About this RNA: Shown here is a 116-nucleotide RNA sequence from Hibiscus trionum, a member of the family "MIR390 microRNA precursor family". The match comes from Rfam's covariance-model search (110 bits).
[Rfam]
RNA sequence: UAGAAGAAUCUGUUAAGCUCAGGAGGGAUAGCGCCAUACAUCAUCUUUAACCCUUUUCUUUCCUGUGUUUUGAUCUUCCAUGGCGCUAUCCAUCCUGAGUUUCAUCGGUUCUUCUU
Numbered sequence: 001u002a003g004a005a006g007a008a009u010c011u012g013u014u015a016a017g018c019u020c021a022g023g024a025g026g027g028a029u030a031g032c033g034c035c036a037u038a039c040a041u042c043a044u045c046u047u048u049a050a051c052c053c054u055u056u057u058c059u060u061u062c063c064u065g066u067g068u069u070u071u072g073a074u075c076u077u078c079c080a081u082g083g084c085g086c087u088a089u090c091c092a093u094c095c096u097g098a099g100u101u102u103c104a105u106c107g108g109u110u111c112u113u114c115u116u
Stems, first nucleotide, its partner, number of pairs: 010107001016101009026091010